[Rfam]
RNA sequence: UAGGGAACUGCACGGCCGCAUAUCCGACGCGCCACGCGUUCGCGUGGCUUGGGAGUGUGGCAGUGC
Numbered sequence: 001u002a003g004g005g006a007a008c009u010g011c012a013c014g015g016c017c018g019c020a021u022a023u024c025c026g027a028c029g030c031g032c033c034a035c036g037c038g039u040u041c042g043c044g045u046g047g048c049u050u051g052g053g054a055g056u057g058u059g060g061c062a063g064u065g066c
Stems, first nucleotide, its partner, number of pairs: 010066004015061007024053002031048007

Shown here is a 66-nucleotide RNA sequence from Halarchaeum acidiphilum, a member of the family "S15-Halobacteria ribosomal protein leader". Rfam's curators put it in the seed alignment. The family's consensus secondary structure is taken from published work. On this family, see Eckert and Weinberg, BMC Microbiol 2020: "Discovery of 20 novel ribosomal leader candidates in bacteria and archaea".